The family of this 138-nucleotide RNA from Carlito syrichta is "U12 minor spliceosomal RNA". For this family Rfam cites "Pre-mRNA splicing: the discovery of a new spliceosome doubles the challenge" (Tarn and Steitz, Trends Biochem Sci, 1997). The source organism's lineage runs through Eukaryota, Euteleostomi, Primates, Haplorrhini and Carlito. Clan: U2 clan. The family has 62 seed sequences and 2,106 matches in Rfam 15.1.

RNA sequence: ACGCCUUAAACUUAUGCGUAAGGAAAAUAACAAUUUGGGGUGAUGCCCGAAUCCUCACUGCUAAUGUGAGACGAAUUUUUGAGUGGGUAAAGGUGACCCGCCUACCUUGCGGGAUGCCUGAGAGUCGCGAUCUGCCCG
Dot-bracket structure: ...(((((..........))))).........(((((((......))))))).(((((.......))))).............(((((..(((((.(((((.......))))).)))))..............)))))
Numbered sequence: 001a002c003g004c005c006u007u008a009a010a011c012u013u014a015u016g017c018g019u020a021a022g023g024a025a026a027a028u029a030a031c032a033a034u035u036u037g038g039g040g041u042g043a044u045g046c047c048c049g050a051a052u053c054c055u056c057a058c059u060g061c062u063a064a065u066g067u068g069a070g071a072c073g074a075a076u077u078u079u080u081g082a083g084u085g086g087g088u089a090a091a092g093g094u095g096a097c098c099c100g101c102c103u104a105c106c107u108u109g110c111g112g113g114a115u116g117c118c119u120g121a122g123a124g125u126c127g128c129g130a131u132c133u134g135c136c137c138g
Stems, first nucleotide, its partner, number of pairs: 004023005033052007054070005084138005091119005097113005